[Rfam]
RNA sequence: CCAACGGCCCUCUUAAGGGCCACAAAUUUCAUGAAUCAUGCUAUCU
Numbered sequence: 001c002c003a004a005c006g007g008c009c010c011u012c013u014u015a016a017g018g019g020c021c022a023c024a025a026a027u028u029u030c031a032u033g034a035a036u037c038a039u040g041c042u043a044u045c046u
Stems, first nucleotide, its partner, number of pairs: 006021006
Dot-bracket structure: .....((((((....)))))).........................
Shown here is a 46-nucleotide RNA from Cercopithifilaria johnstoni, a member of the family "Histone 3' UTR stem-loop".
From the family's description: The mRNAs of metazoan histone genes lack a poly-A tail. 3' end processing occurs at a site between a highly conserved stem-loop (modelled by this family) and a purine rich region around 20 nts downstream (the histone downstream element, or HDE).
The match comes from Rfam's covariance-model search (35 bits).
NCBI's taxonomy places the organism under Eukaryota, Ecdysozoa, Filarioidea, Onchocercidae, Cercopithifilaria.